[Rfam]
RNA sequence: GAGAUGUGAUGAGUACAAUUUUUGGUCCGUGUUUCUGAAUUCACCGUGACCGACAAACCCUAACCAACCUCUGAUCUC
Numbered sequence: 001g002a003g004a005u006g007u008g009a010u011g012a013g014u015a016c017a018a019u020u021u022u023u024g025g026u027c028c029g030u031g032u033u034u035c036u037g038a039a040u041u042c043a044c045c046g047u048g049a050c051c052g053a054c055a056a057a058c059c060c061u062a063a064c065c066a067a068c069c070u071c072u073g074a075u076c077u078c
Stems, first nucleotide, its partner, number of pairs: 001078004

Description
The family of this 78-nucleotide RNA sequence from Kalanchoe fedtschenkoi is "Small nucleolar RNA SNORD18". The family is grouped with related families in Rfam's "SNORD18 clan". Taxonomically the source falls in Kalanchoe (Eukaryota, Euphyllophyta, Pentapetalae, Crassulaceae). A reference for the family is Prislei et al. (1993), "Two different snoRNAs are encoded in introns of amphibian and human L1 ribosomal protein genes", Nucleic Acids Res. Pairs were carried over by alignment from the consensus structure, which was predicted with PFOLD.